[Rfam]
This 127-nucleotide RNA from Acerihabitans arboris belongs to the Rfam family "RtT RNA". Rfam 15.1 lists 651 matches to the family in 204 species. The base pairs follow the family's consensus structure, which is taken from published work. For this family Rfam cites "A novel RNA product of the tyrT operon of Escherichia coli" (Bosl and Kersten, Nucleic Acids Res, 1991). Lineage of the source: Bacteria > Pseudomonadati > Gammaproteobacteria > Enterobacterales > Acerihabitans. A search with the family's covariance model found it, with a score of 71 bits. Its family is annotated with cellular response to amino acid starvation in the Gene Ontology. From the family's description: This family represents a bacterial cis-regulatory element known as RtT RNA. The exact function of RtT is unknown although it is thought that it may be involved in changing the cellular response in relation to amino acid starvation.
RNA sequence: AUAACGCACGCAUCGUGCGGAUUUGAACCUGCGCAGGUUCGAGUCGAGCGCAGCGAGCCAGCGUUGCCGGAACGGCAACGACCCGAAGGGCGAGGCCAACGGCCGAGUCAUCCUGUACGUGCGCGGU
Numbered sequence: 001a002u003a004a005c006g007c008a009c010g011c012a013u014c015g016u017g018c019g020g021a022u023u024u025g026a027a028c029c030u031g032c033g034c035a036g037g038u039u040c041g042a043g044u045c046g047a048g049c050g051c052a053g054c055g056a057g058c059c060a061g062c063g064u065u066g067c068c069g070g071a072a073c074g075g076c077a078a079c080g081a082c083c084c085g086a087a088g089g090g091c092g093a094g095g096c097c098a099a100c101g102g103c104c105g106a107g108u109c110a111u112c113c114u115g116u117a118c119g120u121g122c123g124c125g126g127u
Stems, first nucleotide, its partner, number of pairs: 015118006022110001032092002038087004045055002062080006